RNA sequence: GUAACUCAAAUUUGUAUGCAGUUGGAACAGCGUCUCUAGCGGAAAACUUAGACAAACGUUCCAACUGCAUACAAAUUUGAGUUA
Number, nucleotide and partner (000 for none) at each position: 001g000002u000003a000004a000005c000006u000007c000008a078009a077010a076011u075012u074013u073014g072015u071016a070017u000018g068019c000020a066021g065022u064023u063024g062025g061026a060027a059028c058029a000030g000031c000032g000033u000034c000035u051036c000037u000038a000039g047040c000041g000042g000043a000044a000045a000046a000047c039048u000049u000050a000051g035052a000053c000054a000055a000056a000057c000058g028059u027060u026061c025062c024063a023064a022065c021066u020067g000068c018069a000070u016071a015072c014073a013074a012075a011076u010077u009078u008079g000080a000081g000082u000083u000084a000
This 84-nucleotide sequence from Bombyx mori belongs to the Rfam family "mir-2807 microRNA precursor family". The family has 8 seed sequences and 5,120 matches in Rfam 15.1. The match comes from Rfam's covariance-model search (71 bits). The source organism's lineage runs through Eukaryota, Ecdysozoa, Panorpida, Amphiesmenoptera and Bombyx.